[Rfam]
RNA sequence: GUAUUUAAGUAGAAACCAGCCGUUUCUCACCUUACAGCUAAGGCUAGUAAGGUUAAGUAAAUUUUACUUUAUUUGUUUAAAGGAAUUAGUAUUUUAGGGACGGCAUUACCGUCCCUUUUUUAUAUGUUUUA
Numbered sequence: 001g002u003a004u005u006u007a008a009g010u011a012g013a014a015a016c017c018a019g020c021c022g023u024u025u026c027u028c029a030c031c032u033u034a035c036a037g038c039u040a041a042g043g044c045u046a047g048u049a050a051g052g053u054u055a056a057g058u059a060a061a062u063u064u065u066a067c068u069u070u071a072u073u074u075g076u077u078u079a080a081a082g083g084a085a086u087u088a089g090u091a092u093u094u095u096a097g098g099g100a101c102g103g104c105a106u107u108a109c110c111g112u113c114c115c116u117u118u119u120u121u122a123u124a125u126g127u128u129u130u131a
Stems, first nucleotide, its partner, number of pairs: 011027006029053003034048002037044002096116008